The family of this 589-nucleotide part of an RNA from Paremcibacter congregatus is "Bacterial large subunit ribosomal RNA". The base pairs follow the family's consensus structure, which is taken from published work. The organism belongs to Paremcibacter, within Bacteria.
RNA sequence: CCCGCGGUUAGACGGAAAGACCCCGUGCACCUUUACUAUAGCUUCAGAAUGAUAAUGGAUAUGUUAUGUGUAGGAUAGGUGGGAGGCUUUGAACUCAUGUCGCCAGAUGUGAGGGAGCCGUUGGUGAAAUACCACCCUUAACCUGUCUGUUAUCUAACCGCGGCCCGUAUAUCCGGGUCCGGGACCUUCUGUGGUGGGUAGUUUGACUGGGGCGGUCGCCUCCUAAAGAGUAACGGAGGCGCGCGAUGGUAGGCUCAGGUUGGUCGGAAAUCAACUGUGAGAGUGCAAUGGCAUAAGCCUGCCUGACUGCGAGACUGACAAGUCGAGCAGAGACGAAAGUCGGUCAUAGUGAUCCGGUGGUCCCGCGUGGAAGGGCCAUCGCUCAACGGAUAAAAGGUACGCCGGGGAUAACAGGCUGAUAAUGCCCAAGAGUCCAUAUCGACGGCAUUGUUUGGCACCUCGAUGUCGGCUCAUCUCAUCCUGGGGCUGGAGCAGGUCCCAAGGGUAUGGCUGUUCGCCAUUUAAAGAGGUACGUGAGCUGGGUUUAGAACGUCGUGAGACAGUUCGGUCCCUAUCUGCCGUGGGCGUA
Number, nucleotide and partner (000 for none) at each position: 001c585002c584003c583004g582005c581006g580007g579008u578009u000010a577011g576012a575013c000014g572015g571016a000017a000018a000019g000020a000021c000022c406023c405024c404025g403026u000027g402028c401029a398030c397031c396032u395033u394034u000035a202036c201037u200038a199039u000040a000041g000042c194043u193044u000045c191046a190047g189048a188049a000050u000051g154052a153053u152054a151055a150056u149057g148058g147059a146060u145061a144062u000063g142064u141065u140066a139067u000068g137069u000070g000071u000072a000073g000074g000075a000076u000077a000078g136079g135080u134081g133082g132083g000084a000085g119086g118087c117088u000089u000090u000091g000092a000093a000094c113095u112096c111097a110098u109099g108100u107101c106102g000103c000104c000105a000106g101107a100108u099109g098110u097111g096112a095113g094114g000115g000116a000117g087118c086119c085120g000121u000122u000123g000124g000125u000126g000127a000128a000129a000130u000131a000132c082133c081134a080135c079136c078137c068138u000139u066140a065141a064142c063143c000144u061145g060146u059147c058148u057149g056150u055151u054152a053153u052154c051155u000156a000157a000158c182159c181160g180161c000162g179163g178164c177165c176166c175167g174168u000169a000170u000171a000172u000173c000174c167175g166176g165177g164178u163179c162180c160181g159182g158183g000184a000185c000186c000187u000188u048189c047190u046191g045192u000193g043194g042195u000196g000197g000198g000199u038200a037201g036202u035203u000204u000205g217206a216207c215208u214209g000210g000211g000212g000213c000214g208215g207216u206217c205218g240219c239220c238221u237222c236223c235224u000225a000226a000227a000228g000229a000230g000231u000232a000233a000234c000235g223236g222237a221238g220239g219240c218241g387242c000243g344244c343245g000246a000247u000248g000249g302250u301251a300252g299253g298254c297255u282256c281257a000258g276259g275260u274261u273262g272263g271264u000265c000266g000267g000268a000269a000270a000271u263272c262273a261274a260275c259276u258277g000278u000279g000280a000281g256282a255283g292284u291285g000286c000287a000288a000289u000290g000291g284292c283293a000294u000295a000296a000297g254298c253299c252300u251301g250302c249303c000304u000305g000306a000307c330308u329309g328310c327311g000312a000313g324314a323315c322316u000317g000318a000319c000320a000321a000322g315323u314324c313325g000326a000327g310328c309329a308330g307331a000332g341333a340334c339335g000336a000337a000338a000339g334340u333341c332342g000343g244344u243345c000346a000347u000348a000349g000350u000351g000352a000353u000354c000355c381356g380357g379358u378359g377360g376361u375362c000363c374364c373365g000366c000367g000368u000369g000370g000371a000372a000373g364374g363375g361376c360377c359378a358379u357380c356381g355382c000383u000384c000385a000386a000387c241388g000389g000390a000391u000392a000393a000394a033395a032396g031397g030398u029399a000400c000401g028402c027403c025404g024405g023406g022407g000408a000409u000410a000411a000412c000413a000414g000415g456416c455417u454418g000419a453420u450421a449422a448423u447424g446425c445426c444427c000428a000429a000430g440431a439432g000433u000434c000435c000436a000437u000438a000439u431440c430441g000442a000443c000444g426445g425446c424447a423448u422449u421450g420451u000452u000453u419454g417455g416456c415457a000458c000459c000460u000461c000462g000463a000464u000465g000466u000467c542468g540469g539470c538471u537472c534473a531474u530475c529476u528477c527478a000479u000480c505481c504482u000483g500484g499485g498486g497487c496488u495489g000490g000491a000492g000493c000494a000495g488496g487497u486498c485499c484500c483501a000502a000503g000504g481505g480506u000507a521508u520509g519510g518511c517512u000513g000514u000515u000516c000517g511518c510519c509520a508521u507522u000523u000524a000525a000526a000527g477528a476529g475530g474531u473532a000533c000534g472535u000536g000537a471538g470539c469540u468541g000542g467543g000544u000545u000546u000547a000548g566549a565550a564551c563552g561553u560554c559555g000556u000557g000558a000559g554560a553561c552562a000563g551564u550565u549566c548567g000568g000569u000570c000571c015572c014573u000574a000575u012576c011577u010578g008579c007580c006581g005582u004583g003584g002585g001586c000587g000588u000589a000